A member of the RNA family "Alphaproteobacteria transfer-messenger RNA" from Erythrobacter sp. SD-21, 345 nucleotides long. About the family: Bacterial tmRNA, also known as 10Sa RNA or SsrA, is named for its dual tRNA and mRNA-like properties. Its role is to liberate the mRNA from a stalled ribosome. Rfam links the family to the GO term RNA catabolic process. Pairs were carried over by alignment from the consensus structure, which is taken from published work. Rfam's curators put it in the seed alignment.
RNA sequence: ACACUUCACAUUAAGCGAUUGGUCGCUAUAUGGGAGCUGCCGGUUUCGACCGGCUAUGGCGAUAAACUGCGCUGUGCAAUAGGUACAACGGACCCGGGGGCAGUACCCGGCGGCUCCACCAUAACCCGCGGAUAUCACGUGGUUUUUGACGGGGCCGAACUAGGAUCGACGUGUGCUGAAAGACAGUGUUUUCGUCCGGGCUGAGUAACCCGUAAAACUGUUCACAACACACAAGUGCCAACGAUAACGAAGCACUCGCUCUCGCAGCGUAAUCUGACGGGCUAACGCCCUGAUCUUACAAAGCUAAAGCGCGGUUGGACCCACCGGGCAACAGAAGCGGAUUCC
Numbered sequence: 001a002c003a004c005u006u007c008a009c010a011u012u013a014a015g016c017g018a019u020u021g022g023u024c025g026c027u028a029u030a031u032g033g034g035a036g037c038u039g040c041c042g043g044u045u046u047c048g049a050c051c052g053g054c055u056a057u058g059g060c061g062a063u064a065a066a067c068u069g070c071g072c073u074g075u076g077c078a079a080u081a082g083g084u085a086c087a088a089c090g091g092a093c094c095c096g097g098g099g100g101c102a103g104u105a106c107c108c109g110g111c112g113g114c115u116c117c118a119c120c121a122u123a124a125c126c127c128g129c130g131g132a133u134a135u136c137a138c139g140u141g142g143u144u145u146u147u148g149a150c151g152g153g154g155c156c157g158a159a160c161u162a163g164g165a166u167c168g169a170c171g172u173g174u175g176c177u178g179a180a181a182g183a184c185a186g187u188g189u190u191u192u193c194g195u196c197c198g199g200g201c202u203g204a205g206u207a208a209c210c211c212g213u214a215a216a217a218c219u220g221u222u223c224a225c226a227a228c229a230c231a232c233a234a235g236u237g238c239c240a241a242c243g244a245u246a247a248c249g250a251a252g253c254a255c256u257c258g259c260u261c262u263c264g265c266a267g268c269g270u271a272a273u274c275u276g277a278c279g280g281g282c283u284a285a286c287g288c289c290c291u292g293a294u295c296u297u298a299c300a301a302a303g304c305u306a307a308a309g310c311g312c313g314g315u316u317g318g319a320c321c322c323a324c325c326g327g328g329c330a331a332c333a334g335a336a337g338c339g340g341a342u343u344c345c
Stems, first nucleotide, its partner, number of pairs: 039054005058196005069189007084175003088172003094110005111157007197212004202224003206220002312326004317343002320340002
Annotation:
Lineage of the source: Bacteria > Pseudomonadota > Alphaproteobacteria > Sphingomonadales > Erythrobacter.